[Rfam]
The record is a 124-nucleotide sequence from Hypnocyclicus thermotrophus, which matches "SAM riboswitch aptamer (S box leader)" in Rfam. The SAM riboswitch is found upstream of a number of genes which code for proteins involved in methionine or cysteine biosynthesis in Gram-positive bacteria. Its family is annotated with regulation of gene expression in the Gene Ontology.
RNA sequence: UUCUUAUCAAGAGAAGUGGAGGGAACGGCCCUUAGAAACUUCAGCAACCUACCUGUUUGGUGUGGUGCUAAUUCCGUGAAUUAUUGAUUUAAGAUUUUAAAUCAAAAUAAUUCGAAGAUGAGAG
Numbered sequence: 001u002u003c004u005u006a007u008c009a010a011g012a013g014a015a016g017u018g019g020a021g022g023g024a025a026c027g028g029c030c031c032u033u034a035g036a037a038a039c040u041u042c043a044g045c046a047a048c049c050u051a052c053c054u055g056u057u058u059g060g061u062g063u064g065g066u067g068c069u070a071a072u073u074c075c076g077u078g079a080a081u082u083a084u085u086g087a088u089u090u091a092a093g094a095u096u097u098u099a100a101a102u103c104a105a106a107a108u109a110a111u112u113c114g115a116a117g118a119u120g121a122g123a124g
Stems, first nucleotide, its partner, number of pairs: 001124008013042005021031003025077004043069004048065002050062004073116001078113008
The source organism's lineage runs through Bacteria, Fusobacteriati, Fusobacteriia, Fusobacteriales and Hypnocyclicus.